TPP riboswitch aptamer (THI element): a 100-nucleotide RNA sequence from Psychromonas ingrahamii. Its family is annotated with thiamine pyrophosphate binding in the Gene Ontology.

[Rfam]
RNA sequence: CAAAUAUAGUCGGGGGGCCUGAAGGCUGAGAUCGCAUAGUGCGAAACCCGUUGAACCUGAUUCAGUUAAUACUGGCGUAGGGAACUAUAAGUCUUGUUUU
Numbered sequence: 001c002a003a004a005u006a007u008a009g010u011c012g013g014g015g016g017g018c019c020u021g022a023a024g025g026c027u028g029a030g031a032u033c034g035c036a037u038a039g040u041g042c043g044a045a046a047c048c049c050g051u052u053g054a055a056c057c058u059g060a061u062u063c064a065g066u067u068a069a070u071a072c073u074g075g076c077g078u079a080g081g082g083a084a085c086u087a088u089a090a091g092u093c094u095u096g097u098u099u100u
Stems, first nucleotide, its partner, number of pairs: 006088005011050004017026003033043004056081004062075004